[Rfam]
RNA sequence: CGUUAUCUGCGGUGUGCGCCAGCACACUCUUACAUUUGCCUUGUUCCUAAAUACGGCCCCGGGUCGGCUUUUCAUCGGCUGUUGUGCAUGUCCGCUGCGUGCGGAAAGCCUUGAGGCCAUGUAGCUCUCCCACCUGAUCCAUCGUGGAUCAAGGUCGUUUGGUGGGCAGCGGCAUCGCGGUUAACGC
Numbered sequence: 001c002g003u004u005a006u007c008u009g010c011g012g013u014g015u016g017c018g019c020c021a022g023c024a025c026a027c028u029c030u031u032a033c034a035u036u037u038g039c040c041u042u043g044u045u046c047c048u049a050a051a052u053a054c055g056g057c058c059c060c061g062g063g064u065c066g067g068c069u070u071u072u073c074a075u076c077g078g079c080u081g082u083u084g085u086g087c088a089u090g091u092c093c094g095c096u097g098c099g100u101g102c103g104g105a106a107a108g109c110c111u112u113g114a115g116g117c118c119a120u121g122u123a124g125c126u127c128u129c130c131c132a133c134c135u136g137a138u139c140c141a142u143c144g145u146g147g148a149u150c151a152a153g154g155u156c157g158u159u160u161g162g163u164g165g166g167c168a169g170c171g172g173c174a175u176c177g178c179g180g181u182u183a184a185c186g187c
Stems, first nucleotide, its partner, number of pairs: 002185004007180009017171003038155003042151002045148003061131003066126004072121001074120002077118004086109002091105005
The record is a 187-nucleotide RNA from Dyella soli, which matches "6S / SsrS RNA" in Rfam. The source organism's lineage runs through Bacteria, Pseudomonadota, Lysobacterales, Rhodanobacteraceae and Dyella. It scores 85 bits against the family's covariance model. Rfam 15.1 lists 5,006 matches to the family in 4,638 species. From the family's description: E. coli 6S RNA was the first non coding RNA to be sequenced, but its function was unknown until recently. It consists of 184 nucleotides that fold into an extended hairpin structure with a large single-stranded internal bulge. The 6S RNA specifically associates with RNA polymerase holoenzyme containing the sigma70 specificity factor. This interaction represses expression from a sigma70-dependent promoter during stationary phase. 6S RNA homologs have recently been identified in most bacterial genomes. By type it is a non-coding RNA gene. The base pairs follow the family's consensus structure, which is taken from published work.